[Rfam]
RNA: Streptococcus sRNA SpF66
Organism: Blautia sp. An46
Nucleotides: 227
Base pairs, nucleotide, nucleotide: 005035006034011031012030016025017024037168038167039166040165049066051064052063053061054060079158080157081156082155084111085110086109089106090105092103093102117151118150119149120148121147122146170225172223174222175221179217180216186215187214188213189212190211191210192209193208194207195206196205197204
Number, partner (000 for none) and nucleotide at each position: 001000g002000a003000c004000a005035c006034c007000g008000u009000u010000g011031c012030c013000c014000c015000u016025c017024c018000u019000a020000u021000a022000u023000u024017g025016g026000c027000a028000c029000a030012g031011g032000a033000a034006g035005g036000a037168g038167g039166g040165u041000u042000g043000u044000c045000a046000u047000a048000u049066g050000g051064g052063a053061g054060a055000u056000u057000u058000u059000u060054u061053c062000a063052u064051c065000a066049c067000u068000u069000u070000u071000a072000u073000u074000a075000u076000c077000u078000c079158u080157g081156u082155u083000a084111c085110g086109g087000c088000a089106g090105g091000u092103g093102u094000g095000g096000c097000u098000u099000g100000c101000c102093a103092c104000c105090u106089c107000a108000u109086c110085u111084g112000c113000a114000a115000a116000u117151g118150g119149c120148u121147g122146g123000a124000c125000a126000g127000a128000g129000a130000u131000a132000a133000g134000a135000g136000g137000u138000a139000a140000a141000a142000g143000c144000a145000a146122c147121c148120a149119g150118c151117c152000u153000a154000g155082g156081g157080c158079a159000u160000a161000a162000g163000c164000c165040a166039c167038c168037c169000u170225g171000c172223c173000a174222a175221a176000a177000c178000g179217g180216a181000a182000u183000a184000g185000a186215a187214a188213a189212c190211c191210c192209u193208g194207g195206a196205g197204a198000c199000c200000g201000c202000c203000a204197u205196c206195u207194c208193c209192a210191g211190g212189g213188u214187u215186u216180u217179c218000a219000u220000u221175u222174u223172g224000c225170c226000a227000u